[Rfam]
RNA sequence: UAAAAUCUUCAGGGCAGGGUGCAAGUCCCUACCGGCGGUAAAGCCCGCGAGCGCAAGCAGAUUUGGUGUAAUUCCAAAGCCGACAGUUAAAGUCUGGAUGAAAGAAGAUGUGG
Number, nucleotide and partner (000 for none) at each position: 001u000002a000003a111004a000005a109006u108007c107008u106009u105010c104011a000012g000013g000014g000015c000016a000017g029018g028019g027020u000021g000022c000023a000024a000025g000026u000027c019028c018029c017030u000031a093032c092033c082034g081035g048036c047037g046038g045039u000040a000041a000042a000043g080044c079045c038046c037047g036048c035049g000050a000051g058052c057053g000054c000055a000056a000057g052058c051059a000060g000061a000062u078063u077064u076065g075066g074067u000068g000069u000070a000071a000072u000073u000074c066075c065076a064077a063078a062079g044080c043081c034082g033083a000084c096085a095086g094087u000088u000089a000090a000091a000092g032093u031094c086095u085096g084097g000098a000099u000100g000101a000102a000103a000104g010105a009106a008107g007108a006109u005110g000111u003112g000113g000
Shown here is a 113-nucleotide sequence from Peptostreptococcus stomatis, a member of the family "FMN riboswitch aptamer (RFN element)". Rfam links the family to the GO term FMN binding. NCBI's taxonomy places the organism under Bacteria, Clostridia, Peptostreptococcales, Peptostreptococcaceae, Peptostreptococcus stomatis. The RFN element is a highly conserved domain that is found frequently in the 5'-untranslated regions of prokaryotic mRNAs that encode for flavin mononucleotide (FMN) biosynthesis and transport proteins. The match comes from Rfam's covariance-model search (118 bits).